[Rfam]
RNA sequence: CCACAGCGCUGGUCCUGACCAGCGCUGUGGUUUAUAGCCAAAGUCGUAGCCCACAAAGCCACGGCUUAAUUUGAAAAAUAACGACCAGCAGGGGCAUCCGGGCUGGUACCCGGACUAUCUGCGGAACUCGUGGUGGCUUCAGCAAGUCGCUGCUUUAUGACUGCUAAAGCGCACGCCGAGUCUACGCCGGUGGUGUCCCCUUACCGAGGGUGACCA
Numbered sequence: 001c002c003a004c005a006g007c008g009c010u011g012g013u014c015c016u017g018a019c020c021a022g023c024g025c026u027g028u029g030g031u032u033u034a035u036a037g038c039c040a041a042a043g044u045c046g047u048a049g050c051c052c053a054c055a056a057a058g059c060c061a062c063g064g065c066u067u068a069a070u071u072u073g074a075a076a077a078a079u080a081a082c083g084a085c086c087a088g089c090a091g092g093g094g095c096a097u098c099c100g101g102g103c104u105g106g107u108a109c110c111c112g113g114a115c116u117a118u119c120u121g122c123g124g125a126a127c128u129c130g131u132g133g134u135g136g137c138u139u140c141a142g143c144a145a146g147u148c149g150c151u152g153c154u155u156u157a158u159g160a161c162u163g164c165u166a167a168a169g170c171g172c173a174c175g176c177c178g179a180g181u182c183u184a185c186g187c188c189g190g191u192g193g194u195g196u197c198c199c200c201u202u203a204c205c206g207a208g209g210g211u212g213a214c215c216a
Stems, first nucleotide, its partner, number of pairs: 001030013042066006049059002090201005095195002097114006115193005121187003125183001127180003133174003137169003141165001145162005
sucA-II RNA: a 216-nucleotide sequence from Pseudomonas sp. 21C1. Taxonomically the source falls in Pseudomonas (Bacteria, Pseudomonadati, Gammaproteobacteria, Pseudomonadales). It scores 166 bits against the family's covariance model. Pairs were carried over by alignment from the consensus structure, which is taken from published work.